[Rfam]
RNA: mir-135 microRNA precursor family
Organism: Ornithorhynchus anatinus
RNA sequence: GCCCCGCUGUGCUCUAUGGCUUUUUAUUCCUAUGUGAUCCUGCUGCUCACUCAUAUAGGGAUUGGAGCCGUGCAACACGGAGGGGG
Numbered sequence: 001g002c003c004c005c006g007c008u009g010u011g012c013u014c015u016a017u018g019g020c021u022u023u024u025u026a027u028u029c030c031u032a033u034g035u036g037a038u039c040c041u042g043c044u045g046c047u048c049a050c051u052c053a054u055a056u057a058g059g060g061a062u063u064g065g066a067g068c069c070g071u072g073c074a075a076c077a078c079g080g081a082g083g084g085g086g
Stems, first nucleotide, its partner, number of pairs: 002085004007080005013074001015072009026062012